Rfam assigns this 87-nucleotide RNA from Phasianus colchicus to the family "Small nucleolar RNA SNORD60". Rfam classes the family as a C/D-box small nucleolar RNA. It scores 43 bits against the family's covariance model. Its Rfam clan is "SNORD60 clan". The base pairs follow the family's consensus structure, which was predicted with PFOLD. Gene Ontology terms of the family: nucleolus and RNA processing. For this family Rfam cites "Purified box C/D snoRNPs are able to reproduce site-specific 2'-O-methylation of target RNA in vitro" (Galardi et al., Mol Cell Biol, 2002).
[Rfam]
RNA sequence: AGCCGGGGAUGAUUUCUGCCUUUCUGACACCUCGUCUGAGGGCGGCGGGCGGCCGCGGCCACUGCUGACGCUUUACGGCUGAGGCUC
Numbered sequence: 001a002g003c004c005g006g007g008g009a010u011g012a013u014u015u016c017u018g019c020c021u022u023u024c025u026g027a028c029a030c031c032u033c034g035u036c037u038g039a040g041g042g043c044g045g046c047g048g049g050c051g052g053c054c055g056c057g058g059c060c061a062c063u064g065c066u067g068a069c070g071c072u073u074u075a076c077g078g079c080u081g082a083g084g085c086u087c
Base pairs, nucleotide, nucleotide: 001086002085003084004083042056043055044054045053046052